[Rfam]
The record is a 131-nucleotide RNA from Ramphastos sulfuratus, which matches "Small Cajal body specific RNA 23" in Rfam. NCBI's taxonomy places the organism under Eukaryota, Opisthokonta, Sarcopterygii, Neognathae, Ramphastos. Rfam describes the family as follows. scaRNAs are a specific class of small nuclear RNAs which localise to the Cajal bodies and guide the modification of RNA polymerase II transcribed spliceosomal RNAs U1, U2, U4, U5 and U12. By type it is a small Cajal body RNA.
RNA sequence: GUGCUCACAAGAACACUUCUCCUGCCGUGUGGCAGUGAUGGGUGCUGGCAAAAUGUGAGCUAGAGCAUGAGUAUUGCUUUGGGAGUGUCGCAUUCCAGACCACAUGGGACACUACAGUUUUCAAUACAACA
Number, nucleotide and partner (000 for none) at each position: 001g000002u000003g060004c059005u058006c057007a056008c055009a000010a000011g000012a046013a000014c044015a000016c000017u042018u041019c000020u000021c000022c000023u000024g000025c000026c000027g000028u000029g000030u000031g000032g000033c000034a000035g000036u000037g000038a000039u000040g000041g018042g017043u000044g014045c000046u012047g000048g000049c000050a000051a000052a000053a000054u000055g008056u007057g006058a005059g004060c003061u000062a000063g000064a000065g000066c000067a000068u000069g000070a000071g127072u000073a125074u124075u123076g122077c000078u000079u117080u116081g115082g000083g000084a113085g112086u111087g110088u109089c108090g000091c106092a000093u102094u000095c000096c000097a000098g000099a000100c000101c000102a093103c000104a000105u000106g091107g000108g089109a088110c087111a086112c085113u084114a000115c081116a080117g079118u000119u000120u000121u000122c076123a075124a074125u073126a000127c071128a000129a000130c000131a000